RNA: L31-Actinobacteria ribosomal protein leader
RNA sequence: ACGGUUCCGGUUCACGCCCGAGCCACCGCCACGCUGUUCGGCCAGCAUUGUGGGGGGCAUUGACGGCGACCCGGCGACC
Numbered sequence: 001a002c003g004g005u006u007c008c009g010g011u012u013c014a015c016g017c018c019c020g021a022g023c024c025a026c027c028g029c030c031a032c033g034c035u036g037u038u039c040g041g042c043c044a045g046c047a048u049u050g051u052g053g054g055g056g057g058c059a060u061u062g063a064c065g066g067c068g069a070c071c072c073g074g075c076g077a078c079c
Stems, first nucleotide, its partner, number of pairs: 003079003007074004015068004019062003